This 99-nucleotide RNA sequence from Antarctobacter heliothermus belongs to the Rfam family "Rhodo-rpoB RNA". The organism belongs to Antarctobacter, within Bacteria. The family's RNA type in Rfam is cis-regulatory element. The match comes from Rfam's covariance-model search (62 bits). Pairs were carried over by alignment from the consensus structure, which is taken from published work.

[Rfam]
RNA sequence: GGAUCGAGAGGCGCGUGGUGGGACGCGCGCCGAGAAUGGAUCCGAUUGUCUGUCAUCACUGACGCACGCGAUACCGUGGCCCCCGACGGUAUGGACGUG
Number, nucleotide and partner (000 for none) at each position: 001g043002g042003a041004u040005c039006g000007a000008g000009a000010g031011g030012c029013g028014c027015g026016u025017g024018g000019u000020g000021g000022g000023a000024c017025g016026c015027g014028c013029g012030c011031c010032g000033a000034g000035a000036a000037u000038g000039g005040a004041u003042c002043c001044g000045a000046u000047u000048g000049u000050c000051u000052g000053u000054c000055a000056u000057c000058a000059c000060u000061g000062a000063c000064g000065c000066a000067c099068g098069c097070g096071a000072u091073a090074c089075c088076g087077u000078g000079g000080c000081c000082c000083c000084c000085g000086a000087c076088g075089g074090u073091a072092u000093g000094g000095a000096c070097g069098u068099g067